[Rfam]
RNA sequence: UUGCUCUCUCAUUCCCCCUAGCCUGUCAGUUGCGCGCUCACACUGACAGACUAGGGGGAAUAAGAGAGAGCGAUCGGAAACGGAGACAAAUCAAGGCGAAGGGAAGACCUUCGCCACGAAGGUCUUCCCUUCGCCUUGAUUUGUCUCCGUUUCCG
Numbered sequence: 001u002u003g004c005u006c007u008c009u010c011a012u013u014c015c016c017c018c019u020a021g022c023c024u025g026u027c028a029g030u031u032g033c034g035c036g037c038u039c040a041c042a043c044u045g046a047c048a049g050a051c052u053a054g055g056g057g058g059a060a061u062a063a064g065a066g067a068g069a070g071c072g073a074u075c076g077g078a079a080a081c082g083g084a085g086a087c088a089a090a091u092c093a094a095g096g097c098g099a100a101g102g103g104a105a106g107a108c109c110u111u112c113g114c115c116a117c118g119a120a121g122g123u124c125u126u127c128c129c130u131u132c133g134c135c136u137u138g139a140u141u142u143g144u145c146u147c148c149g150u151u152u153c154c155g
Stems, first nucleotide, its partner, number of pairs: 003071004008064002011061001017057003075155003080150007093137007101129013
RNA: Small nucleolar RNA SNORA14